[Rfam]
RNA sequence: GUGGCUGCCGGAUGGGUGCUCUCUACUAGUGCUGAGCAGAGGCUUUUGCUGAGGCCACUGUGAACCUGUAGGGUUUCCCCCUAGGCUACGGAGCCGG
Number, nucleotide and partner (000 for none) at each position: 001g000002u096003g095004g094005c093006u092007g086008c085009c084010g082011g081012a000013u000014g080015g079016g078017u000018g076019c000020u000021c073022u072023c071024u070025a069026c068027u000028a067029g066030u000031g065032c000033u063034g000035a000036g061037c060038a059039g058040a000041g056042g055043c054044u053045u052046u051047u000048g000049c000050u000051g046052a045053g044054g043055c042056c041057a000058c039059u038060g037061u036062g000063a033064a000065c031066c029067u028068g026069u025070a024071g023072g022073g021074u000075u000076u018077c000078c016079c015080c014081c011082u010083a000084g009085g008086c007087u000088a000089c000090g000091g000092a006093g005094c004095c003096g002097g000